[Rfam]
RNA sequence: GAGGUUCCGGUUCACGCCGUGGCGACAGGCGCCUGGCGACCCGGCGACC
Numbered sequence: 001g002a003g004g005u006u007c008c009g010g011u012u013c014a015c016g017c018c019g020u021g022g023c024g025a026c027a028g029g030c031g032c033c034u035g036g037c038g039a040c041c042c043g044g045c046g047a048c049c
Base pairs, nucleotide, nucleotide: 003049004048005047007044008043009042010041015038016037017036018035019034021033022032023031
RNA: L31-Actinobacteria ribosomal protein leader
Organism: Actinocatenispora sera